Heliobacter pylori small RNA HPnc0580: a 98-nucleotide RNA from Helicobacter pylori. It scores 76 bits against the family's covariance model. Taxonomically the source falls in Helicobacter pylori (Bacteria, Pseudomonadati, Helicobacteraceae, Helicobacter).
[Rfam]
RNA sequence: CCCCAUUCGUAUCUAGUAUAGGAAGUGUGAAAAGUUACGCCUUUGGAGAUGUGAUGUGUGAGAGAGAAUGCGUUGGAGCUUAAACUCUGUAAAAUCUC
Numbered sequence: 001c002c003c004c005a006u007u008c009g010u011a012u013c014u015a016g017u018a019u020a021g022g023a024a025g026u027g028u029g030a031a032a033a034g035u036u037a038c039g040c041c042u043u044u045g046g047a048g049a050u051g052u053g054a055u056g057u058g059u060g061a062g063a064g065a066g067a068a069u070g071c072g073u074u075g076g077a078g079c080u081u082a083a084a085c086u087c088u089g090u091a092a093a094a095u096c097u098c
Stems, first nucleotide, its partner, number of pairs: 017029004035063002038060003044056002047052001075088004
Dot-bracket structure: ................((((.....)))).....((.(((...((.(....)..)).))).))...........((((......))))..........